[Rfam]
The family of this 106-nucleotide RNA from Prunus avium is "MIR6274 microRNA precursor family". The match comes from Rfam's covariance-model search (84 bits). Gene Ontology terms of the family: miRNA-mediated post-transcriptional gene silencing and RISC complex.

RNA sequence: GGAUAACACUGUUUUGCUAUUCCCGGUCAAUAAUGCUAUGACAUGUGGAAGUAUUAUCACGUAUGUCAUAACAUUAUUGGUCGGGGAUAGCAAAAUAGUGCUAUCC
Number, nucleotide and partner (000 for none) at each position: 001g000002g105003a104004u103005a102006a000007c000008a000009c000010u000011g000012u095013u094014u093015u092016g091017c090018u089019a088020u087021u000022c085023c084024c083025g082026g081027u080028c079029a078030a077031u076032a075033a074034u073035g072036c000037u070038a069039u068040g067041a066042c065043a064044u063045g062046u061047g060048g000049a000050a057051g000052u000053a000054u000055u000056a000057u050058c000059a000060c047061g046062u045063a044064u043065g042066u041067c040068a039069u038070a037071a000072c035073a034074u033075u032076a031077u030078u029079g028080g027081u026082c025083g024084g023085g022086g000087a020088u019089a018090g017091c016092a015093a014094a013095a012096u000097a000098g000099u000100g000101c000102u005103a004104u003105c002106c000